[Rfam]
RNA sequence: UUCCUAUGCAUAUACCGCUUUGAGAUCUAGCUUUAAAGAGGCAUAGGGCAUGGGAA
Numbered sequence: 001u002u003c004c005u006a007u008g009c010a011u012a013u014a015c016c017g018c019u020u021u022g023a024g025a026u027c028u029a030g031c032u033u034u035a036a037a038g039a040g041g042c043a044u045a046g047g048g049c050a051u052g053g054g055a056a
Base pairs, nucleotide, nucleotide: 001056002055003054004053005052006051007050008049009048011045012044013043015041016040018038019037020036021035022034
mir-202 microRNA precursor family: a 56-nucleotide RNA sequence from Salmo salar.
The family's consensus secondary structure was predicted with RNAalifold.
NCBI's taxonomy places the organism under Eukaryota, Opisthokonta, Neopterygii, Protacanthopterygii, Salmo.
Rfam 15.1 lists 673 matches to the family in 631 species.